[Rfam]
RNA sequence: CCCUUAACUAUUAAAAGCUUCGUUUUGGUCCGUUAACUUACUUUUUGGUUUCGUUUUGGUCCCUUAACUCAUCCUCCGUCAACCUCUUUGAUCCUUUAUGUUAGGAUGAAUGUAUUAGAGUUAAGGGACCAAAAUGAAACAAAAAAAUAAGUUAAGGGACCAAAACGAAAUCAAAAAAUAAGUUAAGGGACCAAAACGAAACUUUUAAUAGUUAAGGGACCAAAAGAAAACCCAAAAAUAAGUUAUGGGACCGAAACGAAACUUUUAAUAGUUAAGGUA
Numbered sequence: 001c002c003c004u005u006a007a008c009u010a011u012u013a014a015a016a017g018c019u020u021c022g023u024u025u026u027g028g029u030c031c032g033u034u035a036a037c038u039u040a041c042u043u044u045u046u047g048g049u050u051u052c053g054u055u056u057u058g059g060u061c062c063c064u065u066a067a068c069u070c071a072u073c074c075u076c077c078g079u080c081a082a083c084c085u086c087u088u089u090g091a092u093c094c095u096u097u098a099u100g101u102u103a104g105g106a107u108g109a110a111u112g113u114a115u116u117a118g119a120g121u122u123a124a125g126g127g128a129c130c131a132a133a134a135u136g137a138a139a140c141a142a143a144a145a146a147a148u149a150a151g152u153u154a155a156g157g158g159a160c161c162a163a164a165a166c167g168a169a170a171u172c173a174a175a176a177a178a179u180a181a182g183u184u185a186a187g188g189g190a191c192c193a194a195a196a197c198g199a200a201a202c203u204u205u206u207a208a209u210a211g212u213u214a215a216g217g218g219a220c221c222a223a224a225a226g227a228a229a230a231c232c233c234a235a236a237a238a239u240a241a242g243u244u245a246u247g248g249g250a251c252c253g254a255a256a257c258g259a260a261a262c263u264u265u266u267a268a269u270a271g272u273u274a275a276g277g278u279a
Stems, first nucleotide, its partner, number of pairs: 002277007023256003027252003031248001034245007042237002045234001047232005

MIR2655 microRNA precursor family: a 279-nucleotide RNA sequence from Medicago truncatula. Its family is annotated with miRNA-mediated post-transcriptional gene silencing and RISC complex in the Gene Ontology. The organism belongs to Medicago, within Eukaryota. Rfam 15.1 lists 892 matches to the family in 5 species.